[Rfam]
RNA sequence: ACCGUCCUUAUCUUGGGGUUGUGCUGCUGUUCGAUGAACGUGUAGUGAGAGCAGCACUGCUAACGCCAUCACAACACUGCGCAUCACCUGGACCCUGAGUCCAGUUACUGGUGCAAUUUUUGGAACC
Numbered sequence: 001a002c003c004g005u006c007c008u009u010a011u012c013u014u015g016g017g018g019u020u021g022u023g024c025u026g027c028u029g030u031u032c033g034a035u036g037a038a039c040g041u042g043u044a045g046u047g048a049g050a051g052c053a054g055c056a057c058u059g060c061u062a063a064c065g066c067c068a069u070c071a072c073a074a075c076a077c078u079g080c081g082c083a084u085c086a087c088c089u090g091g092a093c094c095c096u097g098a099g100u101c102c103a104g105u106u107a108c109u110g111g112u113g114c115a116a117u118u119u120u121u122g123g124a125a126c127c
Base pairs, nucleotide, nucleotide: 006018007017008016009015021060022059023058026055027054028053029052030051031050032049038046039045081114082113083112084111085110088104089103090102091101092100093099